[Rfam]
RNA sequence: CGCUUAACAGCGCCGUAGGCAGGAGCGGGGGACCCAAGGUAAGUGCCUGCCCGGGCAGUUGACGGGCGGCUAGGGGUGUAGCCGUGUCUCGUGAAAGCGAGGGCACGGCCGGGCAACUCAACCGGCCCGAACCCGACAGCUCACCUCGCAGGCGUCGGUGAGGGGAUCG
Numbered sequence: 001c002g003c004u005u006a007a008c009a010g011c012g013c014c015g016u017a018g019g020c021a022g023g024a025g026c027g028g029g030g031g032a033c034c035c036a037a038g039g040u041a042a043g044u045g046c047c048u049g050c051c052c053g054g055g056c057a058g059u060u061g062a063c064g065g066g067c068g069g070c071u072a073g074g075g076g077u078g079u080a081g082c083c084g085u086g087u088c089u090c091g092u093g094a095a096a097g098c099g100a101g102g103g104c105a106c107g108g109c110c111g112g113g114c115a116a117c118u119c120a121a122c123c124g125g126c127c128c129g130a131a132c133c134c135g136a137c138a139g140c141u142c143a144c145c146u147c148g149c150a151g152g153c154g155u156c157g158g159u160g161a162g163g164g165g166a167u168c169g
Stems, first nucleotide, its partner, number of pairs: 011154004025149006035073001074134003082108008111128004

Shown here is a 169-nucleotide RNA sequence from Streptomyces sp. TLI_185, a member of the family "c-di-AMP riboswitch aptamer (ydaO/yuaA leader)".
The match comes from Rfam's covariance-model search (68 bits).
The source organism's lineage runs through Bacteria, Actinomycetota, Kitasatosporales, Streptomycetaceae and Streptomyces.
Its family is annotated with regulation of gene expression and cyclic-di-AMP binding in the Gene Ontology.